[Rfam]
RNA sequence: CAGUGUUACAGCUCUUUUAGAAUUUGUCUAGUAGGUCUUCUGGCGCUUGCCGGAAGGCCCUC
Numbered sequence: 001c002a003g004u005g006u007u008a009c010a011g012c013u014c015u016u017u018u019a020g021a022a023u024u025u026g027u028c029u030a031g032u033a034g035g036u037c038u039u040c041u042g043g044c045g046c047u048u049g050c051c052g053g054a055a056g057g058c059c060c061u062c
Stems, first nucleotide, its partner, number of pairs: 034059011
Record summary: U7 small nuclear RNA: a 62-nucleotide RNA from Dasypus novemcinctus. The source organism's lineage runs through Eukaryota, Metazoa, Deuterostomia, Gnathostomata and Dasypus. Rfam's curators write: Animal histone pre-mRNAs are spliced by a different mechanism than nuclear pre-mRNAs and self-splicing introns. This processing involves the U7 snRNP, which contains only one RNA species: U7. The 5' end of U7 RNA is thought to base-pair to a conserved spacer element downstream of the cleavage site in histone pre-mRNA. This family contains a number of annotated U7 pseudogenes.